[Rfam]
RNA sequence: GAGAGGUCCCUGCCCUCAUCCGUUUAACUAUUUAAACGUUAUCCCAUCAGACGGUUAAACUAUUAUGAAUAUUCUGGUGCUAAAUGGAAUGAGGGUAGUCAUCUCUCUCAU
Dot-bracket structure: ((((((....((((((((.(((((((.(...............((((((.(............).)))......))).).)))))))..))))))))......))))))..

A member of the RNA family "MIR5294 microRNA precursor family" from Medicago truncatula, 111 nucleotides long. A search with the family's covariance model found it, with a score of 121 bits.